This 323-nucleotide part of an RNA from Trichogramma brassicae belongs to the Rfam family "Eukaryotic large subunit ribosomal RNA".
A search with the family's covariance model found it, with a score of 2868 bits.
[Rfam]
RNA sequence: GAGUCUAGCAUGUGUGCGAGUCAUUGAGAUAUCAAAACUGAAAGCGUAACGAAAGUGAAGGCGCGCGCUAGUCGCGUGCUCAGGGAGGAUGGAGCGCCGGUCUCGGUCGGCCUCUCGCACUCCCGAGGCGUCUCGUUUCCAAUCCGUGAAUGCAGGCGCGCUCUGAGCGCAGAUGCUGGGACCCGAAAGAUGGUGAACUAUGCCUGGUCAGGUCGAAGUCAGGGGAAACCCUGAUGGAGGACCGUAGCGAUUCUGACGUGCAAAUCGAUCGUCGGAACUGGGUAUAGGGGCGAAAGACUAAUCGAACCAUCUAGUAGCUGGUU
Numbered sequence: 001g002a003g004u005c006u007a008g009c010a011u012g013u014g015u016g017c018g019a020g021u022c023a024u025u026g027a028g029a030u031a032u033c034a035a036a037a038c039u040g041a042a043a044g045c046g047u048a049a050c051g052a053a054a055g056u057g058a059a060g061g062c063g064c065g066c067g068c069u070a071g072u073c074g075c076g077u078g079c080u081c082a083g084g085g086a087g088g089a090u091g092g093a094g095c096g097c098c099g100g101u102c103u104c105g106g107u108c109g110g111c112c113u114c115u116c117g118c119a120c121u122c123c124c125g126a127g128g129c130g131u132c133u134c135g136u137u138u139c140c141a142a143u144c145c146g147u148g149a150a151u152g153c154a155g156g157c158g159c160g161c162u163c164u165g166a167g168c169g170c171a172g173a174u175g176c177u178g179g180g181a182c183c184c185g186a187a188a189g190a191u192g193g194u195g196a197a198c199u200a201u202g203c204c205u206g207g208u209c210a211g212g213u214c215g216a217a218g219u220c221a222g223g224g225g226a227a228a229c230c231c232u233g234a235u236g237g238a239g240g241a242c243c244g245u246a247g248c249g250a251u252u253c254u255g256a257c258g259u260g261c262a263a264a265u266c267g268a269u270c271g272u273c274g275g276a277a278c279u280g281g282g283u284a285u286a287g288g289g290g291c292g293a294a295a296g297a298c299u300a301a302u303c304g305a306a307c308c309a310u311c312u313a314g315u316a317g318c319u320g321g322u323u
Stems, first nucleotide, its partner, number of pairs: 005179007013171005020045002025040002030035001049056002083124005091115004126162002128159006137150002182321002185318001189311006198287011209275001211243004218235007247272004252268002255266002289299002